[Rfam]
RNA sequence: GUACAGAUGAUGAGCUUUGCAUUAUGAAUAGAAACACUGAUGCUGUAAACGCUUUCUGAUGUA
Numbered sequence: 001g002u003a004c005a006g007a008u009g010a011u012g013a014g015c016u017u018u019g020c021a022u023u024a025u026g027a028a029u030a031g032a033a034a035c036a037c038u039g040a041u042g043c044u045g046u047a048a049a050c051g052c053u054u055u056c057u058g059a060u061g062u063a
Stems, first nucleotide, its partner, number of pairs: 002063004012055001013053003020045002023042003
RNA: Small nucleolar RNA Z39